[Rfam]
RNA sequence: UGUCAAGAGUUCCAGCGACAAGCCCUGGCUUGCUGGACGGCAACCCUCACGCUGUGGCGGGGUGCCCCAGGUGAGGACACGGCCCGGACGGAUCGUCAGGGUCAGCACAGCCG
Numbered sequence: 001u002g003u004c005a006a007g008a009g010u011u012c013c014a015g016c017g018a019c020a021a022g023c024c025c026u027g028g029c030u031u032g033c034u035g036g037a038c039g040g041c042a043a044c045c046c047u048c049a050c051g052c053u054g055u056g057g058c059g060g061g062g063u064g065c066c067c068c069a070g071g072u073g074a075g076g077a078c079a080c081g082g083c084c085c086g087g088a089c090g091g092a093u094c095g096u097c098a099g100g101g102u103c104a105g106c107a108c109a110g111c112c113g
Stems, first nucleotide, its partner, number of pairs: 001079004009038001011037006021030002039066003044062003048057001082102004087097004

A member of the RNA family "SAM (S-adenosyl methionine) riboswitch aptamer" from Nakamurella alba, 113 nucleotides long.
Gene Ontology terms of the family: regulation of gene expression and S-adenosylmethionine metabolic process.
The organism belongs to Nakamurella, within Bacteria.
The family's consensus secondary structure is taken from published work.
Clan: SAM clan.